[Rfam]
Nucleotides: 086
Base pairs, nucleotide, nucleotide: 012075013074014073015072016071017070018069019068020067021065022064023063024062025061029057030056
Number, partner (000 for none) and nucleotide at each position: 001000g002000u003000c004000u005000c006000c007000u008000c009000g010000c011000u012075u013074c014073c015072u016071u017070a018069u019068c020067a021065u022064u023063c024062u025061c026000g027000u028000g029057u030056c031000c032000a033000g034000g035000c036000u037000g038000a039000u040000g041000c042000a043000g044000g045000u046000u047000g048000u049000a050000a051000g052000a053000u054000c055000u056030g057029g058000a059000c060000g061025g062024a063023g064022a065021a066000c067020u068019g069018a070017u071016a072015a073014g074013g075012g076000c077000a078000c079000g080000u081000g082000g083000c084000a085000g086000a

About this RNA: Shown here is an 86-nucleotide RNA from Trichonephila clavata, a member of the family "mir-184 microRNA precursor family". For this family Rfam cites "The developmental miRNA profiles of zebrafish as determined by small RNA cloning" (Chen et al., Genes Dev, 2005). A search with the family's covariance model found it, with a score of 66 bits. NCBI's taxonomy places the organism under Eukaryota, Protostomia, Chelicerata, Orbiculariae, Trichonephila. Its family is annotated with gene silencing by miRNA and RISC complex in the Gene Ontology.